[Rfam]
RNA sequence: AAAAUAAAGGAGCAAUAAUCCACUUCUUGUUUUAUCAAGGGGGGCGUUAUUGCUCCUUUAU
Numbered sequence: 001a002a003a004a005u006a007a008a009g010g011a012g013c014a015a016u017a018a019u020c021c022a023c024u025u026c027u028u029g030u031u032u033u034a035u036c037a038a039g040g041g042g043g044g045c046g047u048u049a050u051u052g053c054u055c056c057u058u059u060a061u
Base pairs, nucleotide, nucleotide: 006059007058008057009056010055011054012053013052014051015050016049017048021044024041025040026039027038028037029036